[Rfam]
RNA sequence: AACCUUCCUUCUUGGCGCUCCUAUUGUUUUGAAGAUAGAAGUGUAUGUUAUGGAAGGGAAAUAAUAUCCCUUAUGGGUGUUCGGAUCUCCUUCGGUGCCGUUUAAAAUUUCUUAUCGAACGGUAUCAUCCUCUGGAUUCGAGACAUUG
Numbered sequence: 001a002a003c004c005u006u007c008c009u010u011c012u013u014g015g016c017g018c019u020c021c022u023a024u025u026g027u028u029u030u031g032a033a034g035a036u037a038g039a040a041g042u043g044u045a046u047g048u049u050a051u052g053g054a055a056g057g058g059a060a061a062u063a064a065u066a067u068c069c070c071u072u073a074u075g076g077g078u079g080u081u082c083g084g085a086u087c088u089c090c091u092u093c094g095g096u097g098c099c100g101u102u103u104a105a106a107a108u109u110u111c112u113u114a115u116c117g118a119a120c121g122g123u124a125u126c127a128u129c130c131u132c133u134g135g136a137u138u139c140g141a142g143a144c145a146u147u148g
Stems, first nucleotide, its partner, number of pairs: 003057006010050001015044004021038004068077003080142009094126002098122006
Shown here is a 148-nucleotide RNA sequence from Haemonchus placei, a member of the family "Nematode snoRNA ceN88". A search with the family's covariance model found it, with a score of 93 bits. The literature on the family includes a 2007 paper in BMC Mol Biol by Jia et al., "Systematic identification of non-coding RNA 2,2,7-trimethylguanosine cap structures in Caenorhabditis elegans". Rfam 15.1 lists 99 matches to the family in 51 species. Lineage of the source: Eukaryota > Eumetazoa > Bilateria > Nematoda > Haemonchus.